[Rfam]
RNA sequence: AGCGGGACGGAACUCGACCGCCCACUGAAGCGCUGAUCGCAUUCAUUGAAGAUCAGCGCGUUGUCUACGGCGUCGAGUCGAUCUGCAAGGUUCCGCCGAUCGCGCCG
Numbered sequence: 001a002g003c004g005g006g007a008c009g010g011a012a013c014u015c016g017a018c019c020g021c022c023c024a025c026u027g028a029a030g031c032g033c034u035g036a037u038c039g040c041a042u043u044c045a046u047u048g049a050a051g052a053u054c055a056g057c058g059c060g061u062u063g064u065c066u067a068c069g070g071c072g073u074c075g076a077g078u079c080g081a082u083c084u085g086c087a088a089g090g091u092u093c094c095g096c097c098g099a100u101c102g103c104g105c106c107g
Base pairs, nucleotide, nucleotide: 006022008020009019010018068107069106070105071104072103079102080101082099083098085096086095
RNA: ALIL pseudoknot